[Rfam]
RNA sequence: UGGAGGUUGAGAAGGUGAAACAGUAAUAAUUGCUGUUUUUACCGGUUGUAACUUCCUAAAAUAACAGUGCUAAUGCAGAGAUUACUUCAUUUUUUCCAUUGAAGUAGUUGUACUGCUGGCGUUCAAGUC
Numbered sequence: 001u002g003g004a005g006g007u008u009g010a011g012a013a014g015g016u017g018a019a020a021c022a023g024u025a026a027u028a029a030u031u032g033c034u035g036u037u038u039u040u041a042c043c044g045g046u047u048g049u050a051a052c053u054u055c056c057u058a059a060a061a062u063a064a065c066a067g068u069g070c071u072a073a074u075g076c077a078g079a080g081a082u083u084a085c086u087u088c089a090u091u092u093u094u095u096c097c098a099u100u101g102a103a104g105u106a107g108u109u110g111u112a113c114u115g116c117u118g119g120c121g122u123u124c125a126a127g128u129c
Base pairs, nucleotide, nucleotide: 002056003055004054005053006052014043015042016041017040018038019037020036021035022034023033024032074121075120076119079117080116084114090110093107094106097104